Shown here is a 116-nucleotide RNA sequence from Sinomonas atrocyanea, a member of the family "SAM riboswitch aptamer (S box leader)". A search with the family's covariance model found it, with a score of 49 bits. Gene Ontology term of the family: regulation of gene expression. Pairs were carried over by alignment from the consensus structure, which is taken from published work.

RNA sequence: UGACCAUCCCGAGCGGCCGAGAGAUCUGGCUCCGUGACGCCGCAGCAACCAUGGCCCUCUGCACAGGACCACCCUCUGCGCAGGACCACAGGUGCUACCGCCAGAACCGAUGGAGA
Numbered sequence: 001u002g003a004c005c006a007u008c009c010c011g012a013g014c015g016g017c018c019g020a021g022a023g024a025u026c027u028g029g030c031u032c033c034g035u036g037a038c039g040c041c042g043c044a045g046c047a048a049c050c051a052u053g054g055c056c057c058u059c060u061g062c063a064c065a066g067g068a069c070c071a072c073c074c075u076c077u078g079c080g081c082a083g084g085a086c087c088a089c090a091g092g093u094g095c096u097a098c099c100g101c102c103a104g105a106a107c108c109g110a111u112g113g114a115g116a
Stems, first nucleotide, its partner, number of pairs: 001116001004113005013043005021032003026104004044096004049092002052088003100108001